[Rfam]
RNA: Bacterial large subunit ribosomal RNA, nucleotides 670 to 899
Organism: Collinsella tanakaei
RNA sequence: GAGUUGCUGGCCGUCGGCGAGGUUAAGCUGGAAAGCGAGCCGGAGCGAAAGCGAGUCCGAAACGGGCGACCAUAGUCGGCGGCCGCAGACGCGAAGCCGGGUGAGCUACCCGUGGGCAGGCUGAAGCGGGGGUAAGACCCCGUGGAGGGCCGAACGCACGUCGGUUGAAAACGGCGGCGAUGACCUGCGGGUAGGGGUGAAAGGCCUAUCAAACCCGGAGAUAUCUCGUU
Numbered sequence: 001g002a003g004u005u006g007c008u009g010g011c012c013g014u015c016g017g018c019g020a021g022g023u024u025a026a027g028c029u030g031g032a033a034a035g036c037g038a039g040c041c042g043g044a045g046c047g048a049a050a051g052c053g054a055g056u057c058c059g060a061a062a063c064g065g066g067c068g069a070c071c072a073u074a075g076u077c078g079g080c081g082g083c084c085g086c087a088g089a090c091g092c093g094a095a096g097c098c099g100g101g102u103g104a105g106c107u108a109c110c111c112g113u114g115g116g117c118a119g120g121c122u123g124a125a126g127c128g129g130g131g132g133u134a135a136g137a138c139c140c141c142g143u144g145g146a147g148g149g150c151c152g153a154a155c156g157c158a159c160g161u162c163g164g165u166u167g168a169a170a171a172c173g174g175c176g177g178c179g180a181u182g183a184c185c186u187g188c189g190g191g192u193a194g195g196g197g198u199g200a201a202a203g204g205c206c207u208a209u210c211a212a213a214c215c216c217g218g219a220g221a222u223a224u225c226u227c228g229u230u
Stems, first nucleotide, its partner, number of pairs: 005087003009084010021041004027036003045052002055067004090228002093225001097218006106194011117182001119151004126143006155179003159176005196206003